[Rfam]
Glycine riboswitch aptamer: an 86-nucleotide RNA from Firmicutes bacterium CAG:170.

RNA sequence: AUGAAAGGAUCAGGAGAGUGCAUAGGACUAUGCCACCGAAGGGGCUCGCGCAAGGAACUCUCAGGUAAAGGAACUGAUCCCGGACG
Numbered sequence: 001a002u003g004a005a006a007g008g009a010u011c012a013g014g015a016g017a018g019u020g021c022a023u024a025g026g027a028c029u030a031u032g033c034c035a036c037c038g039a040a041g042g043g044g045c046u047c048g049c050g051c052a053a054g055g056a057a058c059u060c061u062c063a064g065g066u067a068a069a070g071g072a073a074c075u076g077a078u079c080c081c082g083g084a085c086g
Stems, first nucleotide, its partner, number of pairs: 007080007020033004035066003038062002042060003045055002

Taxonomically the source falls in Bacillota (Bacteria, Bacillati).